Rfam assigns this 96-nucleotide RNA sequence from Tupaia belangeri to the family "Small nucleolar RNA SNORD125". Pairs were carried over by alignment from the consensus structure, which was predicted with WAR.

[Rfam]
RNA sequence: GAAGCACGCAGCCCCUCCUGAUGACCCUUCUUCCUGAGCAGCUCUGUGAUGAGCAAACCGAGCCUCUAAGAAGUUGACUGAAGGGGCUGCUUCCUC
Numbered sequence: 001g002a003a004g005c006a007c008g009c010a011g012c013c014c015c016u017c018c019u020g021a022u023g024a025c026c027c028u029u030c031u032u033c034c035u036g037a038g039c040a041g042c043u044c045u046g047u048g049a050u051g052a053g054c055a056a057a058c059c060g061a062g063c064c065u066c067u068a069a070g071a072a073g074u075u076g077a078c079u080g081a082a083g084g085g086g087c088u089g090c091u092u093c094c095u096c
Base pairs, nucleotide, nucleotide: 008090009089010088011087012086013085014084015083
Its Rfam clan is "SNORD61 clan".